[Rfam]
RNA sequence: UUUGUUUAAAUCAUUGUAGGUCUCUAUUUUGAAAAUUAAACUUCCACAAAGUGAUGGAACAUACAUUGAUUUCAUCCAA
Dot-bracket structure: ((.(.(.((((((.((((...((.(((((((...............)))))))..))....)))).)))))).).).))
The family of this 79-nucleotide RNA sequence from Medicago truncatula is "MIR5269 microRNA precursor family".
The family has 2 seed sequences and 389 matches in Rfam 15.1.
A search with the family's covariance model found it, with a score of 68 bits.
Its family is annotated with RISC complex and miRNA-mediated post-transcriptional gene silencing in the Gene Ontology.